[Rfam]
RNA sequence: GAGGGGGUUAGGAUCCUCUGCAGUACUGUAUGGUGUUGUAUAGUCACCGCCAUGUAGGACCUGACCCCACAUGUCAUCGACACUACAACAUCAUACGGUACUGCAGAGGAUCUCAACCCCCG
Numbered sequence: 001g002a003g004g005g006g007g008u009u010a011g012g013a014u015c016c017u018c019u020g021c022a023g024u025a026c027u028g029u030a031u032g033g034u035g036u037u038g039u040a041u042a043g044u045c046a047c048c049g050c051c052a053u054g055u056a057g058g059a060c061c062u063g064a065c066c067c068c069a070c071a072u073g074u075c076a077u078c079g080a081c082a083c084u085a086c087a088a089c090a091u092c093a094u095a096c097g098g099u100a101c102u103g104c105a106g107a108g109g110a111u112c113u114c115a116a117c118c119c120c121c122g
Base pairs, nucleotide, nucleotide: 003121004120005119006118007117008116009115011113012112013111014110015109016108017107018106019105020104021103022102023101024100025099026098027097028096029095030094031093032092033091034090035089036088037087038086039085040084051073052072053071054070055069057067058066
This 122-nucleotide sequence from Triticum turgidum belongs to the Rfam family "MIR5084 microRNA precursor family". Rfam links the family to the GO terms RISC complex and miRNA-mediated post-transcriptional gene silencing. The match comes from Rfam's covariance-model search (113 bits).